[Rfam]
RNA sequence: CCCCGUACGCUGUGCGGGGCGCUGUAUGUGCUUUUGUAACCAAGGGGUCUGCUCGUG
Numbered sequence: 001c002c003c004c005g006u007a008c009g010c011u012g013u014g015c016g017g018g019g020c021g022c023u024g025u026a027u028g029u030g031c032u033u034u035u036g037u038a039a040c041c042a043a044g045g046g047g048u049c050u051g052c053u054c055g056u057g
Stems, first nucleotide, its partner, number of pairs: 001019008
Dot-bracket structure: ((((((((...))))))))......................................

Rfam assigns this 57-nucleotide RNA sequence from Kosakonia cowanii to the family "ClpQY promoter". NCBI's taxonomy places the organism under Bacteria, Pseudomonadati, Pseudomonadota, Gammaproteobacteria, Kosakonia cowanii. The match comes from Rfam's covariance-model search (62 bits). On this family, see Lien et al., Open Microbiol J 2009: "Regulation of clpQ(+)Y(+) (hslV(+)U(+)) gene expression in Escherichia coli". Pairs were carried over by alignment from the consensus structure.